[Rfam]
RNA sequence: UCUGCUGUGAGGCAGAAUCUGAAGGAAGCUGGAGGCAAAUGCACGAGCCAAGGUACACGAACUGGAUUAGAGGCAAGAGUAGUCGGAUGAGUCACCCACACAUGACGAAAUCCGAAGUCGCCAAGGGCUACGCUUGUAAACUCCAGUGGUUGCGGGCAGAAAGAUGACGUU
Numbered sequence: 001u002c003u004g005c006u007g008u009g010a011g012g013c014a015g016a017a018u019c020u021g022a023a024g025g026a027a028g029c030u031g032g033a034g035g036c037a038a039a040u041g042c043a044c045g046a047g048c049c050a051a052g053g054u055a056c057a058c059g060a061a062c063u064g065g066a067u068u069a070g071a072g073g074c075a076a077g078a079g080u081a082g083u084c085g086g087a088u089g090a091g092u093c094a095c096c097c098a099c100a101c102a103u104g105a106c107g108a109a110a111u112c113c114g115a116a117g118u119c120g121c122c123a124a125g126g127g128c129u130a131c132g133c134u135u136g137u138a139a140a141c142u143c144c145a146g147u148g149g150u151u152g153c154g155g156g157c158a159g160a161a162a163g164a165u166g167a168c169g170u171u
Stems, first nucleotide, its partner, number of pairs: 001016006028171001030169002036163001040158003044154002046151005062146005067140001073137003077133001079131006085113004091106004
The family of this 171-nucleotide RNA sequence from Paenibacillus algicola is "Group II catalytic intron D1-D4-3". The pairing is the family consensus, mapped onto this sequence. About the family: Group II introns are found in rRNA, tRNA and mRNA of organelles in fungi, plants and protists, and also in mRNA in bacteria.